[Rfam]
RNA: Makes More Granules Regulator RNA (mmgR)
Organism: Novosphingobium sp. 9U
RNA sequence: AGGGGGUGCCUUUCAGGCAUCCUCUCCCAAACUUUCAGUGGGUCGGUCUUCGGAUCGGCCCUUUUUUUGCGUCUGC
Numbered sequence: 001a002g003g004g005g006g007u008g009c010c011u012u013u014c015a016g017g018c019a020u021c022c023u024c025u026c027c028c029a030a031a032c033u034u035u036c037a038g039u040g041g042g043u044c045g046g047u048c049u050u051c052g053g054a055u056c057g058g059c060c061c062u063u064u065u066u067u068u069g070c071g072u073c074u075g076c
Base pairs, nucleotide, nucleotide: 008018009017010016011015040061041060042059043058044057045056046055047054048053